[Rfam]
RNA sequence: GGAUUGAUGAUGAAAAUAACUGUCUGAGGAUGCUGAAUGGCUCAUACAAAUAGCAAUGUGAGGUCC
Numbered sequence: 001g002g003a004u005u006g007a008u009g010a011u012g013a014a015a016a017u018a019a020c021u022g023u024c025u026g027a028g029g030a031u032g033c034u035g036a037a038u039g040g041c042u043c044a045u046a047c048a049a050a051u052a053g054c055a056a057u058g059u060g061a062g063g064u065c066c
Base pairs, nucleotide, nucleotide: 001066002065003064004063005062
Rfam assigns this 66-nucleotide sequence from Neotoma lepida to the family "Small nucleolar RNA SNORD109A".
A search with the family's covariance model found it, with a score of 64 bits.
The base pairs follow the family's consensus structure, which was predicted with WAR.
Its family is annotated with RNA processing and nucleolus in the Gene Ontology.
The organism belongs to Neotoma, within Eukaryota.
Rfam's curators write: Humans have two copies of the SNORD109 gene, SNORD109A and SNORD109B.
A reference for the family is Runte et al. (2001), "The IC-SNURF-SNRPN transcript serves as a host for multiple small nucleolar RNA species and as an antisense RNA for UBE3A", Hum Mol Genet.